[Rfam]
RNA sequence: AGUCAAGAGUUUUGGCACCGUUUUGGUGAGCGUUUUUCCUUUGCCUUUUGAAAGGUGAAAGAAAAUG
Number, nucleotide and partner (000 for none) at each position: 001a000002g000003u000004c000005a000006a000007g000008a000009g000010u062011u061012u059013u058014g000015g000016c057017a056018c055019c054020g000021u053022u052023u051024u050025g049026g048027u000028g046029a000030g044031c043032g042033u000034u000035u000036u000037u000038c000039c000040u000041u000042u032043g031044c030045c000046u028047u000048u026049u025050g024051a023052a022053a021054g019055g018056u017057g016058a013059a012060a000061g011062a010063a000064a000065a000066u000067g000
RNA: S-element